[Rfam]
RNA sequence: GGUGAUUCAAACCAGUAUCUAGGACAGCGGUUCGAUUCCGCUCAGCUCCAUCAUCUUUUGGGGCUGCAAUGGCUUCGACUAGAUACAAGGAGUAUGACUGAAGCCUGCUCGGUCAGAGCAAAACCAUAACUGCUAACAAAAUCGUUAGUUUCUCACGUCAAACAGCCCCUGUAGCUGCUUGA
Numbered sequence: 001g002g003u004g005a006u007u008c009a010a011a012c013c014a015g016u017a018u019c020u021a022g023g024a025c026a027g028c029g030g031u032u033c034g035a036u037u038c039c040g041c042u043c044a045g046c047u048c049c050a051u052c053a054u055c056u057u058u059u060g061g062g063g064c065u066g067c068a069a070u071g072g073c074u075u076c077g078a079c080u081a082g083a084u085a086c087a088a089g090g091a092g093u094a095u096g097a098c099u100g101a102a103g104c105c106u107g108c109u110c111g112g113u114c115a116g117a118g119c120a121a122a123a124c125c126a127u128a129a130c131u132g133c134u135a136a137c138a139a140a141a142u143c144g145u146u147a148g149u150u151u152c153u154c155a156c157g158u159c160a161a162a163c164a165g166c167c168c169c170u171g172u173a174g175c176u177g178c179u180u181g182a
Stems, first nucleotide, its partner, number of pairs: 001099003005095001016085003020081003026042005043066007

This 182-nucleotide sequence from Prochlorococcus sp. AG-436-M02 belongs to the Rfam family "permuted transfer-messenger RNA". The source organism's lineage runs through Bacteria, Bacillati, Cyanophyceae, Prochlorococcaceae and Prochlorococcus. For this family Rfam cites "Phylogenetic analysis of tmRNA secondary structure" (Williams and Bartel, RNA, 1996). Rfam classes the family as a non-coding RNA gene. The family's consensus secondary structure is taken from published work. Bacterial tmRNA, also known as 10Sa RNA or SsrA, is named for its dual tRNA and mRNA-like properties. Its role is to liberate the mRNA from a stalled ribosome.